[Rfam]
RNA sequence: AUGGUGUUCAGCACCAGGGACAGGUGUGUUUACCUGUGUGUGGAUGGUGUUUAGCACCAGGGACAGGUGUGUUUACCU
Number, nucleotide and partner (000 for none) at each position: 001a000002u059003g058004g057005u056006g055007u054008u053009c000010a051011g050012c049013a048014c047015c046016a045017g000018g039019g000020a037021c036022a035023g034024g033025u032026g031027u000028g000029u000030u000031u026032a025033c024034c023035u022036g021037u020038g000039u018040g000041u000042g000043g000044a000045u016046g015047g014048u013049g012050u011051u010052u000053a008054g007055c006056a005057c004058c003059a002060g000061g000062g000063a000064c000065a000066g000067g000068u000069g000070u000071g000072u000073u000074u000075a000076c000077c000078u000
The record is a 78-nucleotide sequence from Branchiostoma belcheri, which matches "mir-2060 microRNA precursor family" in Rfam. The sequence is in the family's curated seed alignment. Rfam links the family to the GO terms miRNA-mediated post-transcriptional gene silencing and RISC complex. Rfam 15.1 lists 3,696 matches to the family in 4 species.